[Rfam]
RNA sequence: CUGACCGCACACGACUGGCGCAGGUGGGCAACCACCGGGGAGUGCCGGGCCUCGGCAUCAGCUGAGGCCGGGGAGCGAGAGCAUCGAACGCCUGGGUGCCUCAU
Numbered sequence: 001c002u003g004a005c006c007g008c009a010c011a012c013g014a015c016u017g018g019c020g021c022a023g024g025u026g027g028g029c030a031a032c033c034a035c036c037g038g039g040g041a042g043u044g045c046c047g048g049g050c051c052u053c054g055g056c057a058u059c060a061g062c063u064g065a066g067g068c069c070g071g072g073g074a075g076c077g078a079g080a081g082c083a084u085c086g087a088a089c090g091c092c093u094g095g096g097u098g099c100c101u102c103a104u
Stems, first nucleotide, its partner, number of pairs: 003051001005049002010044003015039002017092004024035004081099005
Dot-bracket structure: ..(.((...(((..(([[[[...((((....))))..))..)))...)).).............................(((((...]]]]..))))).....

The record is a 104-nucleotide RNA from Nocardioides pocheonensis, which matches "ZMP/ZTP riboswitch aptamer (pfl RNA motif)" in Rfam.
Pairs were carried over by alignment from the consensus structure, which is taken from published work.
The organism belongs to Nocardioides, within Bacteria.
It scores 39 bits against the family's covariance model.